The record is an 87-nucleotide RNA sequence from Hevea brasiliensis, which matches "Small nucleolar RNA Z122" in Rfam. The organism belongs to Hevea, within Eukaryota. The match comes from Rfam's covariance-model search (68 bits).
RNA sequence: GUUGGGAGAUGAUGAGAAAAUUCAAACAAAUUAUCAAAGGCAUCAGCUCUGCUGAGAAUCUAUUUUGCACAUCAGUCUGAUCCCAAA
Numbered sequence: 001g002u003u004g005g006g007a008g009a010u011g012a013u014g015a016g017a018a019a020a021u022u023c024a025a026a027c028a029a030a031u032u033a034u035c036a037a038a039g040g041c042a043u044c045a046g047c048u049c050u051g052c053u054g055a056g057a058a059u060c061u062a063u064u065u066u067g068c069a070c071a072u073c074a075g076u077c078u079g080a081u082c083c084c085a086a087a
Base pairs, nucleotide, nucleotide: 002086003085004084005083006082007081